[Rfam]
RNA: pan motif
Organism: Clostridium neonatale
RNA sequence: UGGGUAGUAUCAAGAUAGAACUACACCAGACUUUUUAUUAUUUAAUAAUACAACUCAUAUCUAGUAUAUUGAAUGAGAUUGAAAU
Numbered sequence: 001u002g003g004g005u006a007g008u009a010u011c012a013a014g015a016u017a018g019a020a021c022u023a024c025a026c027c028a029g030a031c032u033u034u035u036u037a038u039u040a041u042u043u044a045a046u047a048a049u050a051c052a053a054c055u056c057a058u059a060u061c062u063a064g065u066a067u068a069u070u071g072a073a074u075g076a077g078a079u080u081g082a083a084a085u
Stems, first nucleotide, its partner, number of pairs: 001028003004024005010019002051081003054077005060072002